[Rfam]
RNA sequence: AAGUGGUAACGAGAGAGAGACAGGGAACAAGCAGAGCAUGGAUUGAGUUUUACCAAAACAUCAAAUGACUAUGUUUGGUCUCUUCCCAUGCACUGCCUCUUCCCUGGCUCCCUCUUUCUCUCCCUCU
Numbered sequence: 001a002a003g004u005g006g007u008a009a010c011g012a013g014a015g016a017g018a019g020a021c022a023g024g025g026a027a028c029a030a031g032c033a034g035a036g037c038a039u040g041g042a043u044u045g046a047g048u049u050u051u052a053c054c055a056a057a058a059c060a061u062c063a064a065a066u067g068a069c070u071a072u073g074u075u076u077g078g079u080c081u082c083u084u085c086c087c088a089u090g091c092a093c094u095g096c097c098u099c100u101u102c103c104c105u106g107g108c109u110c111c112c113u114c115u116u117u118c119u120c121u122c123c124c125u126c127u
Stems, first nucleotide, its partner, number of pairs: 017110003021106007029098001031096004036091006045082002